Rfam assigns this 73-nucleotide sequence from Bremerella alba to the family "tRNA". Its Rfam clan is "tRNA clan". The family's consensus secondary structure is taken from published work.
[Rfam]
RNA sequence: GGUCAGGUAGCUCAGUUGGUAGAGCAAUGGACUGAAAAUCCAUGUGUCGCCGGUUCGAUCCCGGCUCUGACCA
Numbered sequence: 001g002g003u004c005a006g007g008u009a010g011c012u013c014a015g016u017u018g019g020u021a022g023a024g025c026a027a028u029g030g031a032c033u034g035a036a037a038a039u040c041c042a043u044g045u046g047u048c049g050c051c052g053g054u055u056c057g058a059u060c061c062c063g064g065c066u067c068u069g070a071c072c073a
Base pairs, nucleotide, nucleotide: 001072002071003070004069005068006067007066010025011024012023013022027043028042029041030040031039049065050064051063052062053061
It is annotated as a transfer RNA.